[Rfam]
RNA sequence: GUGCACACGGCAGUACCAUUUAAAGAGCUAUGACCACUUCACACUUAUAGCUCUGAAAAUGGCGCUGCCGUCCACAC
Numbered sequence: 001g002u003g004c005a006c007a008c009g010g011c012a013g014u015a016c017c018a019u020u021u022a023a024a025g026a027g028c029u030a031u032g033a034c035c036a037c038u039u040c041a042c043a044c045u046u047a048u049a050g051c052u053c054u055g056a057a058a059a060u061g062g063c064g065c066u067g068c069c070g071u072c073c074a075c076a077c
Base pairs, nucleotide, nucleotide: 002076003075007071008070009069011067012066013065016062017061018060019059020058021057024054025053026052027051028050029049030048031047
Rfam assigns this 77-nucleotide RNA sequence from Gasterosteus aculeatus to the family "mir-458 microRNA precursor family". The base pairs follow the family's consensus structure, which was predicted with RNAalifold. The organism belongs to Gasterosteus, within Eukaryota. Rfam links the family to the GO terms RISC complex and miRNA-mediated post-transcriptional gene silencing.